[Rfam]
RNA sequence: CACUAGCACAUAUGUCAAAUUCCUAAUUAACGUUUAAUUUUUUAUAUCCAUCGUUUCUUAGAGCCGUAAUUGUGCUGAUAUCAACUCCAGGGAAGGACACACAGCAAGUAUUUGCUGGGUCCGUGUUACGCCCACGAUGCAUCCUCAGCUGUGGGCGUGCUUGGAUCUUCUUCCCAUAUAC
Numbered sequence: 001c002a003c004u005a006g007c008a009c010a011u012a013u014g015u016c017a018a019a020u021u022c023c024u025a026a027u028u029a030a031c032g033u034u035u036a037a038u039u040u041u042u043u044a045u046a047u048c049c050a051u052c053g054u055u056u057c058u059u060a061g062a063g064c065c066g067u068a069a070u071u072g073u074g075c076u077g078a079u080a081u082c083a084a085c086u087c088c089a090g091g092g093a094a095g096g097a098c099a100c101a102c103a104g105c106a107a108g109u110a111u112u113u114g115c116u117g118g119g120u121c122c123g124u125g126u127u128a129c130g131c132c133c134a135c136g137a138u139g140c141a142u143c144c145u146c147a148g149c150u151g152u153g154g155g156c157g158u159g160c161u162u163g164g165a166u167c168u169u170c171u172u173c174c175c176a177u178a179u180a181c
Base pairs, nucleotide, nucleotide: 004077005076006075007074008073009072010071023061024060025059026058029055030054031053032052090175091174092173093172094171102164104162111125113123114122128158129157130156133153134152136150138148

Rfam assigns this 181-nucleotide RNA from Saccharomyces arboricola to the family "Small nucleolar RNA snR85".
Taxonomically the source falls in Saccharomyces arboricola (Eukaryota, Opisthokonta, Dikarya, Saccharomycetales).
The family is grouped with related families in Rfam's "SNORA5 clan".
The match comes from Rfam's covariance-model search (176 bits).
The family's consensus secondary structure was predicted with WAR.